MIR1520 microRNA precursor family: a 120-nucleotide RNA sequence from Glycine max. Rfam 15.1 lists 1,934 matches to the family in 15 species. It scores 111 bits against the family's covariance model. Its family is annotated with miRNA-mediated post-transcriptional gene silencing and RISC complex in the Gene Ontology.
RNA sequence: GUCACGUGUUAUGAUGACUGUCACGUGUCAUGUUCUGAAUGAAUGUCAACUCCAUGAAAGAUAAAAUGCAUUGUUGUUUUCAUUUACCAAUUAGAAUAUGACACGUGACAGUCAUCAUCC
Numbered sequence: 001g002u003c004a005c006g007u008g009u010u011a012u013g014a015u016g017a018c019u020g021u022c023a024c025g026u027g028u029c030a031u032g033u034u035c036u037g038a039a040u041g042a043a044u045g046u047c048a049a050c051u052c053c054a055u056g057a058a059a060g061a062u063a064a065a066a067u068g069c070a071u072u073g074u075u076g077u078u079u080u081c082a083u084u085u086a087c088c089a090a091u092u093a094g095a096a097u098a099u100g101a102c103a104c105g106u107g108a109c110a111g112u113c114a115u116c117a118u119c120c
Stems, first nucleotide, its partner, number of pairs: 020109004025104002029100003033096004038091001040089001